[Rfam]
RNA: Small nucleolar RNA SNORA61
Organism: Odobenus rosmarus
RNA sequence: ACCCUCUGGUUCUCUUUCCCAUCGGAUCUGAACGCUAGUCUUGGUGGUUGUUAAAGGAGGAAGAGGAACGAUGAAGCUGGCCUUCCAGUGUUUACAGUCCGGUAUACAGCUUGUGGGCUGUUUUAAACAAAG
Numbered sequence: 001a002c003c004c005u006c007u008g009g010u011u012c013u014c015u016u017u018c019c020c021a022u023c024g025g026a027u028c029u030g031a032a033c034g035c036u037a038g039u040c041u042u043g044g045u046g047g048u049u050g051u052u053a054a055a056g057g058a059g060g061a062a063g064a065g066g067a068a069c070g071a072u073g074a075a076g077c078u079g080g081c082c083u084u085c086c087a088g089u090g091u092u093u094a095c096a097g098u099c100c101g102g103u104a105u106a107c108a109g110c111u112u113g114u115g116g117g118c119u120g121u122u123u124u125a126a127a128c129a130a131a132g
Base pairs, nucleotide, nucleotide: 003060004059005058006057007056019047020046021045022044023043025040026039027038077120079119080118081117082116083115095109